Rfam assigns this 58-nucleotide sequence to the family "GP20-b RNA". The base pairs follow the family's consensus structure, which is taken from published work. Rfam's curators put it in the seed alignment.
[Rfam]
RNA sequence: UGUCUAACCGCAGACGUAAAAGAGCGGACACACGGGAUGCAACCCCGUAAAAAGCGUA
Numbered sequence: 001u002g003u004c005u006a007a008c009c010g011c012a013g014a015c016g017u018a019a020a021a022g023a024g025c026g027g028a029c030a031c032a033c034g035g036g037a038u039g040c041a042a043c044c045c046c047g048u049a050a051a052a053a054g055c056g057u058a
Stems, first nucleotide, its partner, number of pairs: 001016004008027004033047004